[Rfam]
RNA sequence: UGUCGGGGGGAGUAAUUGACUUGGCUGUUCUAUAUACCAGUCAGUCUUUUUCUCUCUCCUAUA
Numbered sequence: 001u002g003u004c005g006g007g008g009g010g011a012g013u014a015a016u017u018g019a020c021u022u023g024g025c026u027g028u029u030c031u032a033u034a035u036a037c038c039a040g041u042c043a044g045u046c047u048u049u050u051u052c053u054c055u056c057u058c059c060u061a062u063a
Stems, first nucleotide, its partner, number of pairs: 001063003005059004010054003015049001018046004024041004
Shown here is a 63-nucleotide RNA from Arctia plantaginis, a member of the family "mir-14 microRNA precursor family". Gene Ontology terms of the family: RISC complex and miRNA-mediated post-transcriptional gene silencing. NCBI's taxonomy places the organism under Eukaryota, Ecdysozoa, Endopterygota, Glossata, Arctia.